[Rfam]
Nucleotides: 150
Stems, first nucleotide, its partner, number of pairs: 004147007017029003031130002033120002035063004058118002066096002100116005122133003
Number, partner (000 for none) and nucleotide at each position: 001000c002000a003000a004147u005146g006145u007144u008143c009142u010141c011000a012000g013000g014000g015000c016000g017029g018028g019027g020000u021000g022000c023000a024000a025000u026000u027019c028018c029017c030000c031130a032129c033120c034119g035063g036062c037061g038060g039000u040000a041000u042000c043000g044000g045000g046000u047000c048000u049000u050000u051000g052000c053000c054000c055000g056000g057000a058118g059117c060038c061037c062036g063035c064000g065000a066096g067095c068000g069000c070000c071000c072000g073000a074000c075000c076000g077000g078000g079000a080000a081000a082000c083000c084000g085000g086000c087000c088000g089000g090000g091000g092000u093000c094000a095067g096066c097000a098000g099000a100116u101115c102114c103113g104112g105000u106000g107000a108000g109000a110000g111000g112104c113103c114102g115101g116100a117059g118058c119034c120033g121000a122133c123132g124131g125000u126000a127000u128000a129032g130031u131124c132123c133122g134000g135000a136000u137000g138000g139000a140000a141010g142009a143008g144007g145006a146005c147004a148000g149000c150000a